c-di-AMP riboswitch aptamer (ydaO/yuaA leader): a 230-nucleotide RNA from Halanaerobacter jeridensis.
RNA sequence: AUCUACUCUAUACCGAAUUCUAUAUUAUUUAUAGAAGCGGGGGACCCAUUUUUUGGGGCGAAGCUACUUAUUAAGUUUAAGUCUUAGUUCAAGUAUGAUGUUAAAUAAUGCAUAUUAUUUUCAGAUUUUACUUAGCUUUAAACUUGGACUUAGACUUAUAUUUAAGUGGUGAGGUUUACCCUUUGUCCUUAGCCCGUCAGCUAACCUCGUAGGUGUUUUAAAAGGGGGGU
Numbered sequence: 001a002u003c004u005a006c007u008c009u010a011u012a013c014c015g016a017a018u019u020c021u022a023u024a025u026u027a028u029u030u031a032u033a034g035a036a037g038c039g040g041g042g043g044a045c046c047c048a049u050u051u052u053u054u055g056g057g058g059c060g061a062a063g064c065u066a067c068u069u070a071u072u073a074a075g076u077u078u079a080a081g082u083c084u085u086a087g088u089u090c091a092a093g094u095a096u097g098a099u100g101u102u103a104a105a106u107a108a109u110g111c112a113u114a115u116u117a118u119u120u121u122c123a124g125a126u127u128u129u130a131c132u133u134a135g136c137u138u139u140a141a142a143c144u145u146g147g148a149c150u151u152a153g154a155c156u157u158a159u160a161u162u163u164a165a166g167u168g169g170u171g172a173g174g175u176u177u178a179c180c181c182u183u184u185g186u187c188c189u190u191a192g193c194c195c196g197u198c199a200g201c202u203a204a205c206c207u208c209g210u211a212g213g214u215g216u217u218u219u220a221a222a223a224g225g226g227g228g229g230u
Stems, first nucleotide, its partner, number of pairs: 011215004018036007037210006047055002056195003064169007172189003